The family of this 130-nucleotide RNA from Carpinus fangiana is "MIR403 microRNA precursor family". The family's consensus secondary structure was predicted with WAR. The literature on the family includes a 2009 paper in BMC Genomics by Mica et al., "High throughput approaches reveal splicing of primary microRNA transcripts and tissue specific expression of mature microRNAs in Vitis vinifera". The source organism's lineage runs through Eukaryota, Euphyllophyta, eudicotyledons, Fagales and Carpinus. Gene Ontology terms of the family: RISC complex and miRNA-mediated post-transcriptional gene silencing. The match comes from Rfam's covariance-model search (72 bits).
RNA sequence: UCAGAUUUCAAGUUUGUGCGUGAAUCUAUCAACAGCCAUAACCAAACACCCCCCUUCUGCCACCUUUCUCUCUCUCUCUCUCUCUGUGAUUGGAUGCUGUUAGAUUCACGCACAAACUCGUAAUAUGCCU
Numbered sequence: 001u002c003a004g005a006u007u008u009c010a011a012g013u014u015u016g017u018g019c020g021u022g023a024a025u026c027u028a029u030c031a032a033c034a035g036c037c038a039u040a041a042c043c044a045a046a047c048a049c050c051c052c053c054c055u056u057c058u059g060c061c062a063c064c065u066u067u068c069u070c071u072c073u074c075u076c077u078c079u080c081u082c083u084c085u086g087u088g089a090u091u092g093g094a095u096g097c098u099g100u101u102a103g104a105u106u107c108a109c110g111c112a113c114a115a116a117c118u119c120g121u122a123a124u125a126u127g128c129c130u
Base pairs, nucleotide, nucleotide: 002127003126005124006123007122011118012117013116014115015114016113017112018111019110020109021108022107023106024105025104026103028101030099033096044087046085